[Rfam]
RNA sequence: GGACAUAUCUCUGGAGAGUCCCUAACGGGCGCCGAAGGUGCACGAAGUACCAGUACUUCUUAUCUCUCAGGCAAAAGGACAGAGCUUAGGAU
Numbered sequence: 001g002g003a004c005a006u007a008u009c010u011c012u013g014g015a016g017a018g019u020c021c022c023u024a025a026c027g028g029g030c031g032c033c034g035a036a037g038g039u040g041c042a043c044g045a046a047g048u049a050c051c052a053g054u055a056c057u058u059c060u061u062a063u064c065u066c067u068c069a070g071g072c073a074a075a076a077g078g079a080c081a082g083a084g085c086u087u088a089g090g091a092u
Stems, first nucleotide, its partner, number of pairs: 007086001009084005020029003031072003034068002038066001040064001044059004
RNA: Glycine riboswitch aptamer